The record is a 107-nucleotide RNA sequence from Populus tomentosa, which matches "MIR6450 microRNA precursor family" in Rfam.
The family's consensus secondary structure was predicted with RNAalifold.
The organism belongs to Populus, within Eukaryota.
[Rfam]
Nucleotides: 107
Base pairs, nucleotide, nucleotide: 002106003105004104006102007101008100009099013095014094015093016092017091018090019089020088021087022086023085024084029079031077032076033075034074035073036072037071043065044064045063046062047061048060050058
Number, partner (000 for none) and nucleotide at each position: 001000c002106g003105g004104a005000c006102c007101u008100a009099g010000u011000a012000c013095u014094u015093u016092u017091g018090g019089g020088u021087c022086c023085u024084g025000c026000a027000a028000c029079a030000c031077g032076a033075c034074u035073c036072g037071a038000u039000g040000c041000u042000c043065u044064u045063g046062g047061g048060u049000c050058u051000u052000g053000c054000a055000u056000c057000a058050g059000a060048a061047c062046c063045c064044a065043a066000u067000u068000u069000u070000u071037u072036u073035g074034a075033g076032u077031c078000c079029u080000u081000u082000g083000u084024c085023a086022g087021g088020a089019u090018c091017c092016a093015a094014g095013g096000c097000u098000a099009u100008u101007a102006g103000a104004u105003c106002c107000u